Description
Rfam assigns this 160-nucleotide sequence from Microbacterium sp. Root61 to the family "FMN riboswitch aptamer (RFN element)". The family's consensus secondary structure is taken from published work. The RFN element is a highly conserved domain that is found frequently in the 5'-untranslated regions of prokaryotic mRNAs that encode for flavin mononucleotide (FMN) biosynthesis and transport proteins. A search with the family's covariance model found it, with a score of 75 bits.
RNA sequence: ACGUGCUCCGGGGUCGGUGAGAAUCCGAACCGGCGGUGAGAGUCCGCGAGCUGAGGCGCAGCAUCCGAUGAGGGUGCGGCCGAGGUCGAUCCGGUGAAAUUCCGGAACCGACGGUGAUGCGACGGUUUUCCGUCGUCAGUCCGGAUGGGAGGAAGCACAG
Numbered sequence: 001a002c003g004u005g006c007u008c009c010g011g012g013g014u015c016g017g018u019g020a021g022a023a024u025c026c027g028a029a030c031c032g033g034c035g036g037u038g039a040g041a042g043u044c045c046g047c048g049a050g051c052u053g054a055g056g057c058g059c060a061g062c063a064u065c066c067g068a069u070g071a072g073g074g075u076g077c078g079g080c081c082g083a084g085g086u087c088g089a090u091c092c093g094g095u096g097a098a099a100u101u102c103c104g105g106a107a108c109c110g111a112c113g114g115u116g117a118u119g120c121g122a123c124g125g126u127u128u129u130c131c132g133u134c135g136u137c138a139g140u141c142c143g144g145a146u147g148g149g150a151g152g153a154a155g156c157a158c159a160g
Base pairs, nucleotide, nucleotide: 003158004157005156006155007154008152009151015027016026017025031110032109033047034046035045036044042108043107050086051085052084090106091105092104093103094102112143113142114141